Record summary:
Fluoride riboswitch aptamer (crcB RNA motif): a 63-nucleotide RNA sequence from Desulfobaculum bizertense.

[Rfam]
RNA sequence: UCAAACUUCGGGGAUGAAGUCCCCCGUGUAACUGCUCGAUGAGCUGAUGACUUCUGCUGUGAA
Numbered sequence: 001u002c003a004a005a006c007u008u009c010g011g012g013g014a015u016g017a018a019g020u021c022c023c024c025c026g027u028g029u030a031a032c033u034g035c036u037c038g039a040u041g042a043g044c045u046g047a048u049g050a051c052u053u054c055u056g057c058u059g060u061g062a063a
Base pairs, nucleotide, nucleotide: 010025011024012023013022016054017053018052019051020050021049034044035043036042